[Rfam]
RNA sequence: CGUUCUCGUGCGGGAGAGUUCUGUGGCCGCCAGCUACGGACGCCGAAGGAGCAACACCUCUCCGUCAAUCUCUCAGGCCCCCGGACCGCGCUGGAUGA
Numbered sequence: 001c002g003u004u005c006u007c008g009u010g011c012g013g014g015a016g017a018g019u020u021c022u023g024u025g026g027c028c029g030c031c032a033g034c035u036a037c038g039g040a041c042g043c044c045g046a047a048g049g050a051g052c053a054a055c056a057c058c059u060c061u062c063c064g065u066c067a068a069u070c071u072c073u074c075a076g077g078c079c080c081c082c083g084g085a086c087c088g089c090g091c092u093g094g095a096u097g098a
Base pairs, nucleotide, nucleotide: 006093008091009090010089011088012087013086020040021039022038023037024036025035042078043077044076045074046073049072050071051070056065057064